Nucleotides: 037
Base pairs, nucleotide, nucleotide: 002021003020004019005018010036011035012034
Number, partner (000 for none) and nucleotide at each position: 001000c002021a003020a004019g005018g006000g007000a008000u009000a010036g011035c012034c013000g014000a015000a016000a017000a018005c019004c020003u021002u022000u023000a024000a025000a026000a027000a028000a029000g030000a031000g032000u033000a034012g035011g036010c037000a